[Rfam]
RNA: mraW RNA
RNA sequence: ACCUCGUACCCAGGGCCUUUGCGUGGUUCAGAGGCUCUGGUACUGCUUCCCGUACCAGAGCCUCUGAACCGCGCAAAGGCCCUGGGUACGAGGUUGGAGCUCA
Number, nucleotide and partner (000 for none) at each position: 001a000002c000003c000004u000005c090006g089007u088008a087009c086010c085011c084012a000013g000014g081015g080016c000017c078018u077019u076020u075021g074022c073023g072024u071025g070026g069027u068028u067029c066030a065031g064032a063033g062034g061035c060036u059037c058038u057039g056040g055041u054042a053043c052044u000045g000046c000047u000048u000049c000050c000051c000052g043053u042054a041055c040056c039057a038058g037059a036060g035061c034062c033063u032064c031065u030066g029067a028068a027069c026070c025071g024072c023073g022074c021075a020076a019077a018078g017079g000080c015081c014082c000083u000084g011085g010086g009087u008088a007089c006090g005091a000092g000093g000094u000095u000096g000097g000098a000099g000100c000101u000102c000103a000